The family of this 67-nucleotide RNA from Halorubrum sp. Ib24 is "eL15-Euryarchaeota ribosomal protein leader". It scores 39 bits against the family's covariance model. The source organism's lineage runs through Archaea, Methanobacteriota, Halobacteriales, Haloferacaceae and Halorubrum. A reference for the family is Eckert and Weinberg (2020), "Discovery of 20 novel ribosomal leader candidates in bacteria and archaea", BMC Microbiol. Rfam classes the family as a cis-regulatory leader.
RNA sequence: CUCGUCAACGCCGUCGACGCUCCCCGGGACGAGACGAAAUGUGGCCGCUUCGCGGCUGAAUCGCAAC
Numbered sequence: 001c002u003c004g005u006c007a008a009c010g011c012c013g014u015c016g017a018c019g020c021u022c023c024c025c026g027g028g029a030c031g032a033g034a035c036g037a038a039a040u041g042u043g044g045c046c047g048c049u050u051c052g053c054g055g056c057u058g059a060a061u062c063g064c065a066a067c
Stems, first nucleotide, its partner, number of pairs: 001033005035063003043057005